[Rfam]
A member of the RNA family "SAM riboswitch aptamer (S box leader)" from Zafaria cholistanensis, 95 nucleotides long.
Gene Ontology term of the family: regulation of gene expression.

RNA sequence: CGACCAUCCCGAGCGGCUGAGAGAUCUGGCUCCCUGACGCCGCAGCAACCUUCCGGACUCCGCCGGAAAGGUGCUACCGCCAGAAACGAUGGGGA
Numbered sequence: 001c002g003a004c005c006a007u008c009c010c011g012a013g014c015g016g017c018u019g020a021g022a023g024a025u026c027u028g029g030c031u032c033c034c035u036g037a038c039g040c041c042g043c044a045g046c047a048a049c050c051u052u053c054c055g056g057a058c059u060c061c062g063c064c065g066g067a068a069a070g071g072u073g074c075u076a077c078c079g080c081c082a083g084a085a086a087c088g089a090u091g092g093g094g095a
Base pairs, nucleotide, nucleotide: 004092005091006090007089008088013043014042015041016040017039021032022031023030026083027082028081029080044075045074046073047072049071050070051067052066053065079087